[Rfam]
A member of the RNA family "Mahella-1 RNA" from Mahella australiensis, 113 nucleotides long. Pairs were carried over by alignment from the consensus structure, which is taken from published work. The family's RNA type in Rfam is small RNA.
RNA sequence: CCCGAGCUGUCCAACGCCGCAACCUAAUGCGGGUCCACUACUGUGGGUGGCAGCAAAUAACGCCAUGCUAAGCAGGGGCGUUAUGUUGAUGCCGGACAUUUUCUGCCGGCAAA
Numbered sequence: 001c002c003c004g005a006g007c008u009g010u011c012c013a014a015c016g017c018c019g020c021a022a023c024c025u026a027a028u029g030c031g032g033g034u035c036c037a038c039u040a041c042u043g044u045g046g047g048u049g050g051c052a053g054c055a056a057a058u059a060a061c062g063c064c065a066u067g068c069u070a071a072g073c074a075g076g077g078g079c080g081u082u083a084u085g086u087u088g089a090u091g092c093c094g095g096a097c098a099u100u101u102u103c104u105g106c107c108g109g110c111a112a113a
Base pairs, nucleotide, nucleotide: 033048034047035046036045037044038043057084058083059082060081061080062079063078064077066074067073091110092109093108094107095106
Dot-bracket structure: ................................((((((....))))))........((((((((.((.....))..))))))))......(((((..........)))))...